Description:
The family of this 244-nucleotide sequence from Lunasporangiospora selenospora is "Group I catalytic intron". About the family: Group I catalytic introns are large self-splicing ribozymes. They catalyse their own excision from mRNA, tRNA and rRNA precursors in a wide range of organisms. NCBI's taxonomy places the organism under Eukaryota, Fungi, Mortierellomycotina, Mortierellomycetes, Lunasporangiospora. Rfam links the family to the GO term Group I intron splicing. Rfam 15.1 lists 5,602 matches to the family in 1,395 species.
[Rfam]
RNA sequence: AAUCAUGGGUUAAAUAAAGCUCCUUAAAACAGUAAUGUUUUAAUGUAAAUAGGGUUAAUUGCAAGGACGAGUUUUAAUAAAACUUUAUUUGCAGCGAAGCGUAUAUCAGUGCCUUUAUAGGUAUACGAACGUUCAACGACUAAUCGGUGAGCAGCACUAGCAAUAAUCCGGACACGAAUACCCUACAGCCAAUCUAGAAUAGCAUUGGUUGAAGACAUAGUCUAAGCCCAAUGGUGACAUUGGG
Numbered sequence: 001a002a003u004c005a006u007g008g009g010u011u012a013a014a015u016a017a018a019g020c021u022c023c024u025u026a027a028a029a030c031a032g033u034a035a036u037g038u039u040u041u042a043a044u045g046u047a048a049a050u051a052g053g054g055u056u057a058a059u060u061g062c063a064a065g066g067a068c069g070a071g072u073u074u075u076a077a078u079a080a081a082a083c084u085u086u087a088u089u090u091g092c093a094g095c096g097a098a099g100c101g102u103a104u105a106u107c108a109g110u111g112c113c114u115u116u117a118u119a120g121g122u123a124u125a126c127g128a129a130c131g132u133u134c135a136a137c138g139a140c141u142a143a144u145c146g147g148u149g150a151g152c153a154g155c156a157c158u159a160g161c162a163a164u165a166a167u168c169c170g171g172a173c174a175c176g177a178a179u180a181c182c183c184u185a186c187a188g189c190c191a192a193u194c195u196a197g198a199a200u201a202g203c204a205u206u207g208g209u210u211g212a213a214g215a216c217a218u219a220g221u222c223u224a225a226g227c228c229c230a231a232u233g234g235u236g237a238c239a240u241u242g243g244g
Stems, first nucleotide, its partner, number of pairs: 005024001007022005028039003050185004055180001060093006070084005094132002102121001104119003136223001138222005188209006229242005
Dot-bracket structure: ....(.(((((......))))).)...(((......)))..........[[[[.[....((((((....(((((.....)))))...))))))((......(.(((..........))).).........))...(.(((((.....................................].]]]]..((((((..........))))))........)))))).....(((((....)))))..